RNA: mir-252 microRNA precursor family
Organism: Bactrocera dorsalis
RNA sequence: UCGCUUUUCUAAGUACUAGUGCCGCAGGAGAUAGUUCAAACGACACGUAGUAGACCCCUGCUGCCCCAGUGCUUAUCAAAGCGU
Numbered sequence: 001u002c003g004c005u006u007u008u009c010u011a012a013g014u015a016c017u018a019g020u021g022c023c024g025c026a027g028g029a030g031a032u033a034g035u036u037c038a039a040a041c042g043a044c045a046c047g048u049a050g051u052a053g054a055c056c057c058c059u060g061c062u063g064c065c066c067c068a069g070u071g072c073u074u075a076u077c078a079a080a081g082c083g084u
Base pairs, nucleotide, nucleotide: 002083003082004081005080006079007078010075011074012073013072014071015070016069017068019066024061025060026059027058028057030055